[Rfam]
RNA sequence: GCUCAUCACCUUCAUCCUCGGAUCGUCGGGCACGUACCUGCCCGGAGAAGGAGAAAUCU
Number, nucleotide and partner (000 for none) at each position: 001g000002c000003u000004c000005a000006u000007c000008a000009c051010c050011u049012u048013c047014a000015u045016c000017c000018u000019c000020g000021g000022a000023u000024c000025g000026u000027c044028g043029g042030g041031c040032a039033c000034g000035u000036a000037c000038c000039u032040g031041c030042c029043c028044g027045g015046a000047g013048a012049a011050g010051g009052a000053g000054a000055a000056a000057u000058c000059u000

The family of this 59-nucleotide RNA sequence from Candidatus Planktophila limnetica is "msiK RNA". The family's consensus secondary structure is taken from published work.